The record is a 61-nucleotide RNA from Paenibacillus sp. FSL R7-0331, which matches "Fluoride riboswitch aptamer (crcB RNA motif)" in Rfam.
A reference for the family is Baker et al. (2012), "Widespread genetic switches and toxicity resistance proteins for fluoride", Science.
The family's consensus secondary structure is taken from published work.
Nucleotides: 061
Base pairs, nucleotide, nucleotide: 010025011024012023013022016052017051018050019049020048021047033042034041035040
Number, partner (000 for none) and nucleotide at each position: 001000g002000a003000a004000g005000a006000u007000a008000a009000g010025g011024g012023c013022g014000a015000u016052g017051g018050a019049g020048u021047u022013c023012g024011c025010c026000a027000u028000u029000a030000a031000c032000u033042g034041c035040c036000g037000c038000g039000a040035g041034g042033c043000u044000a045000a046000u047021g048020a049019c050018u051017c052016c053000u054000a055000c056000c057000a058000g059000c060000g061000a